[Rfam]
RNA sequence: GCCGCUCUGGAAAGAAGUUCCGUUCCGCGGAACUCGCCCACGGUGAAAGCGAUCAUGAGUCGCGAAUCUCUCAGGCACCGAUGACAGAGGGGGAGUU
Numbered sequence: 001g002c003c004g005c006u007c008u009g010g011a012a013a014g015a016a017g018u019u020c021c022g023u024u025c026c027g028c029g030g031a032a033c034u035c036g037c038c039c040a041c042g043g044u045g046a047a048a049g050c051g052a053u054c055a056u057g058a059g060u061c062g063c064g065a066a067u068c069u070c071u072c073a074g075g076c077a078c079c080g081a082u083g084a085c086a087g088a089g090g091g092g093g094a095g096u097u
Base pairs, nucleotide, nucleotide: 002092003091005089006088007087008086009085016034017033018032019031036076037075038074040071043070045068049063050062051061052060053059